RNA sequence: UUGUGAAAUGAGGGUAACUGUCUUUCAGGACUGACCUGAAAUGCUCACUGCUGAUCAAAA
Numbered sequence: 001u002u003g004u005g006a007a008a009u010g011a012g013g014g015u016a017a018c019u020g021u022c023u024u025u026c027a028g029g030a031c032u033g034a035c036c037u038g039a040a041a042u043g044c045u046c047a048c049u050g051c052u053g054a055u056c057a058a059a060a
Stems, first nucleotide, its partner, number of pairs: 001060002004057003

The record is a 60-nucleotide RNA sequence from Nannospalax galili, which matches "Small nucleolar RNA SNORD2" in Rfam. Gene Ontology terms of the family: RNA processing and nucleolus.